[Rfam]
RNA sequence: UAUUCCCCAAAUUGUAAGUUACUUUGGAUAAAAGUGUCUGCUAAAUGAAUAAAU
Numbered sequence: 001u002a003u004u005c006c007c008c009a010a011a012u013u014g015u016a017a018g019u020u021a022c023u024u025u026g027g028a029u030a031a032a033a034g035u036g037u038c039u040g041c042u043a044a045a046u047g048a049a050u051a052a053a054u
Stems, first nucleotide, its partner, number of pairs: 013043001014041003020036006
Notes
This 54-nucleotide sequence from Onychostoma macrolepis belongs to the Rfam family "UnaL2 LINE 3' element". Rfam describes the family as follows. The eel long interspersed element (LINE) UnaL2 and its partner short interspersed element (SINE) share a conserved 3' tail containing a stem-loop that is critical for their retrotransposition. Presumably, the first step of retrotransposition is the recognition of their 3' tails by UnaL2-encoded reverse transcriptase. By type it is a cis-regulatory element. Lineage of the source: Eukaryota > Eumetazoa > Euteleostomi > Cyprinidae > Onychostoma.